Shown here is a 35-nucleotide RNA from Paraflavisolibacter caeni, a member of the family "DUF805b RNA". By type it is a cis-regulatory element. The base pairs follow the family's consensus structure, which is taken from published work. The match comes from Rfam's covariance-model search (36 bits).
[Rfam]
RNA sequence: AACCGGUAAGCCGAAAACGGUAUUUAGAGUAGGCA
Numbered sequence: 001a002a003c004c005g006g007u008a009a010g011c012c013g014a015a016a017a018c019g020g021u022a023u024u025u026a027g028a029g030u031a032g033g034c035a
Stems, first nucleotide, its partner, number of pairs: 002021004010034003